[Rfam]
Rfam assigns this 132-nucleotide sequence from Gouania willdenowi to the family "U11 spliceosomal RNA". The family's consensus secondary structure is taken from published work. It scores 112 bits against the family's covariance model.
RNA sequence: UAAAAGGGCUUCUGCUGUACUGGCACAGAAGUGGGGGGAUGACUUCCACUUCUGCGGAAUCGCAAUCAAGAGAUUUCGGAAGCAUAAUUUUUAACACCGGGGAAGCUGAUGAUCGCUAGUCUCAGCGCCCCA
Numbered sequence: 001u002a003a004a005a006g007g008g009c010u011u012c013u014g015c016u017g018u019a020c021u022g023g024c025a026c027a028g029a030a031g032u033g034g035g036g037g038g039a040u041g042a043c044u045u046c047c048a049c050u051u052c053u054g055c056g057g058a059a060u061c062g063c064a065a066u067c068a069a070g071a072g073a074u075u076u077c078g079g080a081a082g083c084a085u086a087a088u089u090u091u092u093a094a095c096a097c098c099g100g101g102g103a104a105g106c107u108g109a110u111g112a113u114c115g116c117u118a119g120u121c122u123c124a125g126c127g128c129c130c131c132a
Base pairs, nucleotide, nucleotide: 008083009082010081011080012079013025014024015023016022017021026054027053028052029051030050031049032048033047034046035045036044037043055078056077057076058075059074060073061072100130101129102128105126106125107124108123109122111121112120113119